A member of the RNA family "mir-574 microRNA precursor family" from Myotis brandtii, 81 nucleotides long. Rfam links the family to the GO terms RISC complex and miRNA-mediated post-transcriptional gene silencing. Its Rfam clan is "mir-574 microRNA precursor clan". It scores 81 bits against the family's covariance model. A reference for the family is Lui et al. (2007), "Patterns of known and novel small RNAs in human cervical cancer", Cancer Res.
[Rfam]
RNA sequence: AGGCCUAGAGAGAGAAGCAGAGUCGGAUCAAUAGCCUCCAUGGCAGCUGUGGAUCAGCCCCUGCCUUUCUCUUUCUCUCCA
Numbered sequence: 001a002g003g004c005c006u007a008g009a010g011a012g013a014g015a016a017g018c019a020g021a022g023u024c025g026g027a028u029c030a031a032u033a034g035c036c037u038c039c040a041u042g043g044c045a046g047c048u049g050u051g052g053a054u055c056a057g058c059c060c061c062u063g064c065c066u067u068u069c070u071c072u073u074u075c076u077c078u079c080c081a
Base pairs, nucleotide, nucleotide: 008073009072010071011070012069013068014067015066017064018063019062020061022059024057026055027054028053029052032049033048034047035046